[Rfam]
RNA sequence: GGAUAUACCAAAGAAUUGCACACUCAUCUUGAAGCACCACAUCCAAGAGGCUGAGCUUUGGUUCAGUCCUCUGUACAUCCUAUGCAUGUAUCUGGGAACGGAUAUAUGUAUGUUGCUUUAGGGAAAGUCCUCAGACCAUGGGCAGAAAGUGCCGCCGGUAAUCGGUAUUGGCCUCCGCUUUUGUCAGCCUGUGCCUGCAUUUCCAGCGAAGACGUCUUCUCCCCAUUUUAUGGUGAUUGGAAAGAGCGACAUACAGGCACUUGACACUAUUUGGGGGCUUGUUCGUCAUAGCAAAUAGUUAUGCAAUUGGUCGGUAUCAUCUUUUGGUGUUAUCGUCUAACACAAUGGGGCUCACUCUUGGUAUAUC
Number, nucleotide and partner (000 for none) at each position: 001g000002g367003a366004u365005a364006u363007a362008c361009c360010a359011a358012a000013g000014a308015a307016u306017u305018g304019c303020a000021c000022a000023c000024u000025c000026a000027u000028c000029u121030u120031g119032a118033a117034g116035c115036a000037c000038c000039a000040c000041a000042u000043c000044c000045a000046a000047g000048a000049g000050g000051c000052u000053g000054a000055g000056c000057u000058u000059u000060g000061g000062u000063u000064c000065a000066g000067u000068c000069c000070u000071c000072u000073g000074u000075a000076c000077a000078u000079c000080c000081u000082a000083u000084g000085c000086a000087u000088g000089u000090a000091u000092c000093u000094g000095g000096g000097a000098a000099c000100g000101g000102a000103u000104a000105u000106a000107u000108g000109u000110a000111u000112g000113u000114u000115g035116c034117u033118u032119u031120a030121g029122g000123g000124a000125a000126a352127g351128u000129c350130c349131u348132c347133a000134g000135a000136c000137c000138a000139u000140g000141g153142g152143c151144a150145g000146a000147a000148a000149g000150u144151g143152c142153c141154g172155c171156c170157g169158g168159u167160a000161a000162u000163c000164g000165g000166u000167a159168u158169u157170g156171g155172c154173c000174u000175c000176c000177g000178c000179u000180u000181u000182u000183g000184u000185c000186a000187g000188c000189c000190u000191g000192u000193g000194c000195c000196u000197g000198c000199a000200u000201u000202u000203c000204c000205a000206g000207c000208g000209a000210a000211g000212a000213c000214g000215u000216c000217u000218u000219c000220u000221c276222c275223c274224c273225a272226u000227u000228u000229u000230a270231u269232g268233g267234u000235g000236a000237u264238u263239g262240g261241a000242a000243a000244g000245a000246g000247c000248g000249a000250c000251a000252u000253a000254c000255a000256g000257g000258c000259a000260c000261u240262u239263g238264a237265c000266a000267c233268u232269a231270u230271u000272u225273g224274g223275g222276g221277g000278c000279u000280u000281g000282u000283u000284c000285g000286u000287c000288a000289u000290a000291g000292c000293a000294a000295a000296u000297a000298g000299u000300u000301a000302u000303g019304c018305a017306a016307u015308u014309g000310g337311u000312c335313g334314g333315u332316a000317u000318c000319a000320u000321c000322u000323u000324u000325u000326g000327g000328u000329g000330u000331u000332a315333u314334c313335g312336u000337c310338u000339a000340a000341c000342a000343c000344a000345a000346u000347g132348g131349g130350g129351c127352u126353c000354a000355c000356u000357c000358u011359u010360g009361g008362u007363a006364u005365a004366u003367c002
Rfam assigns this 367-nucleotide RNA sequence from Mycoemilia scoparia to the family "RNase MRP". RNase MRP is an enzymatically active ribonucleoprotein with two distinct roles in eukaryotes. The organism belongs to Mycoemilia, within Eukaryota. The family's RNA type in Rfam is ribozyme. The family is grouped with related families in Rfam's "RNaseP clan". The base pairs follow the family's consensus structure, which is taken from published work. The match comes from Rfam's covariance-model search (102 bits).